Rfam assigns this 78-nucleotide sequence from Megasphaera micronuciformis to the family "ZMP/ZTP riboswitch aptamer (pfl RNA motif)".

RNA sequence: AUAAGGUUAUGUAACUGACGGAAGUGGAACAACCACGGGGAGCAUAAUCCAUUUUAGCCGACCGUCUGGGCAAUGAUU
Numbered sequence: 001a002u003a004a005g006g007u008u009a010u011g012u013a014a015c016u017g018a019c020g021g022a023a024g025u026g027g028a029a030c031a032a033c034c035a036c037g038g039g040g041a042g043c044a045u046a047a048u049c050c051a052u053u054u055u056a057g058c059c060g061a062c063c064g065u066c067u068g069g070g071c072a073a074u075g076a077u078u
Base pairs, nucleotide, nucleotide: 005049006048007047008046009045010044011043012042015039016038017066018065019064020063021062024036025035026034027033055073057071058070059069